RNA sequence: UGUAAAAAAUAUUAUUUAGCGUGACUUUCUUUCAACAGAUAACAAUUGUUGUUACUGCCUAAUGUUUUUAGGGUAUUUUAAAAAAGGGCGAUAAAAAACGAUUGGGGGAUGAGACAUGAACGCUCAAGCA
Numbered sequence: 001u002g003u004a005a006a007a008a009a010u011a012u013u014a015u016u017u018a019g020c021g022u023g024a025c026u027u028u029c030u031u032u033c034a035a036c037a038g039a040u041a042a043c044a045a046u047u048g049u050u051g052u053u054a055c056u057g058c059c060u061a062a063u064g065u066u067u068u069u070a071g072g073g074u075a076u077u078u079u080a081a082a083a084a085a086g087g088g089c090g091a092u093a094a095a096a097a098a099c100g101a102u103u104g105g106g107g108g109a110u111g112a113g114a115c116a117u118g119a120a121c122g123c124u125c126a127a128g129c130a
Stems, first nucleotide, its partner, number of pairs: 018124004043104006049097002058088002
Record summary
A member of the RNA family "PrfA thermoregulator UTR" from Listeria monocytogenes, 130 nucleotides long. Its family is annotated with response to temperature stimulus and regulation of translation in the Gene Ontology. By type it is an RNA thermoregulator. Rfam's curators put it in the seed alignment. About the family: In Listeria monocytogenes, virulence genes are maximally expressed at 37 degrees C, almost silent at 30 degrees C and controlled by PrfA, a transcriptional activator whose expression is thermoregulated.